Overview
A member of the RNA family "Bacillaceae-1 RNA" from Ureibacillus yapensis, 67 nucleotides long. Rfam classes the family as a small RNA.
RNA sequence: GGAAAGUGAAGUCAGCCUAAGAACGACACGUCCUGUGUCAACGGCUGACUGACCUACAUUGUGUAGG
Numbered sequence: 001g002g003a004a005a006g007u008g009a010a011g012u013c014a015g016c017c018u019a020a021g022a023a024c025g026a027c028a029c030g031u032c033c034u035g036u037g038u039c040a041a042c043g044g045c046u047g048a049c050u051g052a053c054c055u056a057c058a059u060u061g062u063g064u065a066g067g
Base pairs, nucleotide, nucleotide: 011049012048013047014046015045016044017043025039026038027037028036029035053067054066055065056064057063
The match comes from Rfam's covariance-model search (70 bits).